[Rfam]
RNA sequence: GAGGGUGUUGUAAGGUUGACUUGCUUAGAAGCUUGUUUAUUCUUCUAAGCUCUUCACUCUUAUAGACACCUUCA
Numbered sequence: 001g002a003g004g005g006u007g008u009u010g011u012a013a014g015g016u017u018g019a020c021u022u023g024c025u026u027a028g029a030a031g032c033u034u035g036u037u038u039a040u041u042c043u044u045c046u047a048a049g050c051u052c053u054u055c056a057c058u059c060u061u062a063u064a065g066a067c068a069c070c071u072u073c074a
Stems, first nucleotide, its partner, number of pairs: 001073002004070005009064007017056003023050009
RNA: mir-5911 microRNA precursor family